Annotation: A member of the RNA family "SAM riboswitch aptamer (S box leader)" from Peribacillus cavernae, 108 nucleotides long. The family's consensus secondary structure is taken from published work. The source organism's lineage runs through Bacteria, Bacillati, Bacillota, Bacillaceae and Peribacillus.
RNA sequence: UUCUUAUCAAGAGAGGCGGAGGGACUGGCCCUGUGAAGCCCGGCAACCUUCAAACAAUCGUUUGAAAAGGUGCCAAAUCCUGCAAAGUGAUACUUUGCGAGAUAAGUG
Numbered sequence: 001u002u003c004u005u006a007u008c009a010a011g012a013g014a015g016g017c018g019g020a021g022g023g024a025c026u027g028g029c030c031c032u033g034u035g036a037a038g039c040c041c042g043g044c045a046a047c048c049u050u051c052a053a054a055c056a057a058u059c060g061u062u063u064g065a066a067a068a069g070g071u072g073c074c075a076a077a078u079c080c081u082g083c084a085a086a087g088u089g090a091u092a093c094u095u096u097g098c099g100a101g102a103u104a105a106g107u108g
Stems, first nucleotide, its partner, number of pairs: 001108001003106006013041001015040003021031003025082001027080002042074004047070002049066004078100001083097006